RNA sequence: AAUUACGUUCGUAGGAACAAAGAGAAUCAGAUUUAUUCUAUACCUGAGUUACCAAUAUACAAUGGA
Numbered sequence: 001a002a003u004u005a006c007g008u009u010c011g012u013a014g015g016a017a018c019a020a021a022g023a024g025a026a027u028c029a030g031a032u033u034u035a036u037u038c039u040a041u042a043c044c045u046g047a048g049u050u051a052c053c054a055a056u057a058u059a060c061a062a063u064g065g066a
Stems, first nucleotide, its partner, number of pairs: 003022002007018004044065002050057002

Plastid-clpP 5UTR RNA: a 66-nucleotide RNA sequence from Olea europaea. For this family Rfam cites "Retrograde signaling in plants: A critical review focusing on the GUN pathway and beyond" (Richter et al., Plant Commun, 2023). About the family: Plastid clpP is a non-coding RNA (ncRNA) recognised in plastids. It was found in the prime untranslated region (5UTR) of a protease complex subunit (clpP) in plastids, suggesting a posible cis-regulatory function. Rfam classes the family as a cis-regulatory element. Lineage of the source: Eukaryota > Viridiplantae > Pentapetalae > asterids > Olea europaea.